[Rfam]
RNA sequence: ACACGGUGAUGGACUGAUGGCGGGCCCUUCUCUGUGGGCCUCUCACAGCGUACCCGCGCCAGAGGAGUGUGCAGCCCUGAACCACUGCCCUGCCUCCUGACUGAUGGGCUGUGAACACUGACGGGGGCUCUACAGUU
Numbered sequence: 001a002c003a004c005g006g007u008g009a010u011g012g013a014c015u016g017a018u019g020g021c022g023g024g025c026c027c028u029u030c031u032c033u034g035u036g037g038g039c040c041u042c043u044c045a046c047a048g049c050g051u052a053c054c055c056g057c058g059c060c061a062g063a064g065g066a067g068u069g070u071g072c073a074g075c076c077c078u079g080a081a082c083c084a085c086u087g088c089c090c091u092g093c094c095u096c097c098u099g100a101c102u103g104a105u106g107g108g109c110u111g112u113g114a115a116c117a118c119u120g121a122c123g124g125g126g127g128c129u130c131u132a133c134a135g136u137u
Base pairs, nucleotide, nucleotide: 002058004056005054006053007052008051015048018045019044020043022041023040024039025037026036073129074128075127076126077125083120084119090111092109093108094107095106
RNA: Small nucleolar RNA SNORA42/SNORA80 family
Organism: Puma concolor